[Rfam]
RNA sequence: UAAAACAGCUCUGGGGUUGUACCCACCCCAGAGGCCCACGUGGCGGCUAGUACUCCGGUAUUGCGGUACCUUUGUACGCCUGU
Numbered sequence: 001u002a003a004a005a006c007a008g009c010u011c012u013g014g015g016g017u018u019g020u021a022c023c024c025a026c027c028c029c030a031g032a033g034g035c036c037c038a039c040g041u042g043g044c045g046g047c048u049a050g051u052a053c054u055c056c057g058g059u060a061u062u063g064c065g066g067u068a069c070c071u072u073u074g075u076a077c078g079c080c081u082g083u
Base pairs, nucleotide, nucleotide: 005083006082007081009033010032011031012030013029014028015027016026017025034044035043036042046079047078050077051076052075053074057070058069059068060067
The family of this 83-nucleotide RNA from Enterovirus coxsackiepol is "Enterovirus 5' cloverleaf cis-acting replication element". For this family Rfam cites "5' cloverleaf in poliovirus RNA is a cis-acting replication element required for negative-strand synthesis" (Barton et al., EMBO J, 2001). Gene Ontology term of the family: negative stranded viral RNA replication. This family represents a cis-regulatory element found at the 5' end of Enterovirus genomes. The element has a cloverleaf like secondary structure and is known to be a multifunctional cis-acting replication element (CRE), required for the initiation of negative strand RNA synthesis. The sequence is in the family's curated seed alignment. By type it is a cis-regulatory element. The family's consensus secondary structure is taken from published work.